[Rfam]
RNA sequence: AGCAAAAAAUGAUGAAAACUCCUGGAUCUAAUGGGUAGAUGUGGAUUAUGUUCUAGAAUGGCCUUCAAAGUUCUCUUAUUGCU
Numbered sequence: 001a002g003c004a005a006a007a008a009a010u011g012a013u014g015a016a017a018a019c020u021c022c023u024g025g026a027u028c029u030a031a032u033g034g035g036u037a038g039a040u041g042u043g044g045a046u047u048a049u050g051u052u053c054u055a056g057a058a059u060g061g062c063c064u065u066c067a068a069a070g071u072u073c074u075c076u077u078a079u080u081g082c083u
Base pairs, nucleotide, nucleotide: 001083002082003081004080005079
Small nucleolar RNA R160: an 83-nucleotide RNA from Coffea canephora. The literature on the family includes a 2003 paper in Nucleic Acids Res by Chen et al., "The high diversity of snoRNAs in plants: identification and comparative study of 120 snoRNA genes from Oryza sativa". The organism belongs to Coffea, within Eukaryota. The family has 9 seed sequences and 799 matches in Rfam 15.1. Rfam's curators write: snoR160 is a C/D box small nucleolar RNA, which acts as a methylation guide for 25S ribosomal RNA in plants. snoR160 has been alternatively named snoZ270 in rice.